[Rfam]
RNA sequence: UUGAAGCUCCAUCUAUAGAUGGAUAAGAUCCCAGUCUAGUCUAUAAGAGGUUUUGAAAAGAAAGGGGCAAUAAUCAUUUUCCUGUUUUAUCAAGAGGGUGAUAUUGGUCCUUU
Numbered sequence: 001u002u003g004a005a006g007c008u009c010c011a012u013c014u015a016u017a018g019a020u021g022g023a024u025a026a027g028a029u030c031c032c033a034g035u036c037u038a039g040u041c042u043a044u045a046a047g048a049g050g051u052u053u054u055g056a057a058a059a060g061a062a063a064g065g066g067g068c069a070a071u072a073a074u075c076a077u078u079u080u081c082c083u084g085u086u087u088u089a090u091c092a093a094g095a096g097g098g099u100g101a102u103a104u105u106g107g108u109c110c111u112u113u
Stems, first nucleotide, its partner, number of pairs: 008023005061113006068106005075100003079096003083092001
RNA: Plastid-psbA-1 3UTR RNA